[Rfam]
RNA: Actinobacteria sRNA Ms_IGR-5
Organism: Streptosporangiales bacterium
RNA sequence: ACGCGGGAAAGGAGGUGGUCCAACAGCAUGCAUAGCUAUGGGACUCGCGAGGUGGCUGCCCGCUAGCCGCCACCCGCUUGUUGCUUCGCCGGCAUCGCGUGACGGCGGCUGGCGAAUCUCAGGCAGUCACCGGACCCCCGGGCCGCCGGCCUUUGUCCAGCCGGCCCUCGCACGCUCCAGCGUGCAGGAGCGGCCCGGGGGUUUGCCUUG
Number, nucleotide and partner (000 for none) at each position: 001a000002c000003g000004c000005g000006g000007g000008a000009a000010a000011g000012g000013a000014g060015g059016u058017g057018g056019u055020c000021c000022a000023a000024c000025a000026g000027c000028a000029u000030g000031c000032a000033u000034a000035g000036c000037u000038a000039u000040g000041g000042g000043a000044c000045u000046c000047g000048c000049g000050a000051g000052g000053u000054g000055g019056c018057u017058g016059c015060c014061c114062g113063c112064u111065a110066g109067c108068c000069g106070c105071c104072a000073c000074c000075c099076g098077c000078u000079u000080g000081u000082u000083g000084c000085u000086u000087c000088g000089c000090c000091g000092g000093c000094a000095u000096c000097g000098c076099g075100u000101g000102a000103c000104g071105g070106c069107g000108g067109c066110u065111g064112g063113c062114g061115a000116a000117u000118c000119u000120c000121a000122g000123g000124c000125a000126g000127u000128c000129a000130c000131c000132g204133g203134a202135c201136c200137c199138c198139c197140g196141g195142g194143c193144c192145g165146c164147c163148g162149g161150c160151c000152u000153u000154u000155g000156u000157c000158c000159a000160g150161c149162c148163g147164g146165c145166c000167c000168u000169c000170g000171c000172a000173c000174g000175c000176u000177c000178c000179a000180g000181c000182g000183u000184g000185c000186a000187g000188g000189a000190g000191c000192g144193g143194c142195c141196c140197g139198g138199g137200g136201g135202u134203u133204u132205g000206c000207c000208u000209u000210g000